[Rfam]
RNA sequence: AACGGAUGCCCUUCUGCGCGGACCGACGUGACCUUAGACAAGCCACAUCGUCCCAGCUCAGAAGGGCAUUCGUGUGUUACGACGCACCUUCACCACCGAAUCCCGCCGGUGCAUUCAG
Number, nucleotide and partner (000 for none) at each position: 001a000002a073003c072004g071005g070006a069007u068008g067009c066010c065011c064012u063013u062014c000015u060016g059017c000018g000019c056020g054021g053022a000023c000024c050025g049026a048027c000028g000029u045030g000031a000032c042033c000034u000035u000036a000037g000038a000039c000040a000041a000042g032043c000044c000045a029046c000047a000048u026049c025050g024051u000052c000053c021054c020055a000056g019057c000058u000059c016060a015061g000062a013063a012064g011065g010066g009067c008068a007069u006070u005071c004072g003073u002074g000075u000076g000077u000078u000079a000080c000081g000082a000083c000084g000085c000086a000087c000088c000089u000090u000091c000092a000093c000094c000095a000096c000097c000098g116099a115100a114101u113102c000103c000104c111105g110106c000107c000108g000109g000110u105111g104112c000113a101114u100115u099116c098117a000118g000

Source information: This 118-nucleotide sequence from Pseudonocardia ammonioxydans belongs to the Rfam family "Actinobacteria sRNA Ms_IGR-7". Pairs were carried over by alignment from the consensus structure. NCBI's taxonomy places the organism under Bacteria, Bacillati, Actinomycetota, Actinomycetes, Pseudonocardia. The family has 14 seed sequences and 463 matches in Rfam 15.1. A search with the family's covariance model found it, with a score of 46 bits. For this family Rfam cites "Identification of small RNAs in Mycobacterium smegmatis using heterologous Hfq" (Li et al., RNA, 2013).